[Rfam]
RNA sequence: CUCGCUGUCACCUGAGUGGGGGUCGUCCGUUGGUGGCAGGAGAAUCGCGCUUCCCUGCCUGGCACCGGGUACAAGUGACAAUCUGCCCCUUGCAAGGCCGCAGUCUCCGGUGGGAUGGGGACGGAGGUCCCCAUCUCUCGGGUGAUGAUGAGACGCGCAACGCCUCAGGCUGGAAACAGAGCAGGGAAAAGUGUCCGCUGUGGCGCAGAGCAGGGAUCACAGAGUGUCACCCCGGCUG
Numbered sequence: 001c002u003c004g005c006u007g008u009c010a011c012c013u014g015a016g017u018g019g020g021g022g023u024c025g026u027c028c029g030u031u032g033g034u035g036g037c038a039g040g041a042g043a044a045u046c047g048c049g050c051u052u053c054c055c056u057g058c059c060u061g062g063c064a065c066c067g068g069g070u071a072c073a074a075g076u077g078a079c080a081a082u083c084u085g086c087c088c089c090u091u092g093c094a095a096g097g098c099c100g101c102a103g104u105c106u107c108c109g110g111u112g113g114g115a116u117g118g119g120g121a122c123g124g125a126g127g128u129c130c131c132c133a134u135c136u137c138u139c140g141g142g143u144g145a146u147g148a149u150g151a152g153a154c155g156c157g158c159a160a161c162g163c164c165u166c167a168g169g170c171u172g173g174a175a176a177c178a179g180a181g182c183a184g185g186g187a188a189a190a191g192u193g194u195c196c197g198c199u200g201u202g203g204c205g206c207a208g209a210g211c212a213g214g215g216a217u218c219a220c221a222g223a224g225u226g227u228c229a230c231c232c233c234g235g236c237u238g
Base pairs, nucleotide, nucleotide: 011020012019013018063238064237065235066234067233068232069231079226080225082223083222084221085220087215088214090213091212092211093210096206098203099202100201101200102199103198104197105144107142108141110139112137113136114135115134116133117132118131119130120129121128122127146150152195153194154193155192156191163186164185165184170179171178172177
Shown here is a 238-nucleotide RNA sequence from Toxoplasma gondii, a member of the family "Protozoan signal recognition particle RNA". The source organism's lineage runs through Eukaryota, Sar, Conoidasida, Eimeriorina and Toxoplasma gondii. Its family is annotated with signal recognition particle, endoplasmic reticulum targeting and SRP-dependent cotranslational protein targeting to membrane, signal sequence recognition in the Gene Ontology. The family's consensus secondary structure is taken from published work. For this family Rfam cites "Towards the structure of the mammalian signal recognition particle" (Wild et al., Curr Opin Struct Biol, 2002).